[Rfam]
RNA sequence: AGUUGAUAAAGCCACAACCGUCGUGAGGCGGUGCCGGAAAGCUUUGGGUCUCAAUCGAGAGAUAGCCAAGCCGCCUGC
Numbered sequence: 001a002g003u004u005g006a007u008a009a010a011g012c013c014a015c016a017a018c019c020g021u022c023g024u025g026a027g028g029c030g031g032u033g034c035c036g037g038a039a040a041g042c043u044u045u046g047g048g049u050c051u052c053a054a055u056c057g058a059g060a061g062a063u064a065g066c067c068a069a070g071c072c073g074c075c076u077g078c
Base pairs, nucleotide, nucleotide: 012037013036017032018031019030020029021028022027041071042070043069045068046067047066048063049062050061051060052059
RNA: c-di-GMP-I riboswitch aptamer
Organism: Candidatus Electrothrix aarhusensis